[Rfam]
RNA sequence: UGACUUCGUGGUAGAGCGCCACGAACGGAAAAUAAAGAAAGCUCGAUUGAA
Dot-bracket structure: .....((((((..[[[[.))))))................]]]].......
Numbered sequence: 001u002g003a004c005u006u007c008g009u010g011g012u013a014g015a016g017c018g019c020c021a022c023g024a025a026c027g028g029a030a031a032a033u034a035a036a037g038a039a040a041g042c043u044c045g046a047u048u049g050a051a
Stems, first nucleotide, its partner, number of pairs: 006024006014044004
Description: Shown here is a 51-nucleotide sequence, a member of the family "6A RNA". Pairs were carried over by alignment from the consensus structure, which is taken from published work. It is one of the family's seed sequences. The family's RNA type in Rfam is small RNA.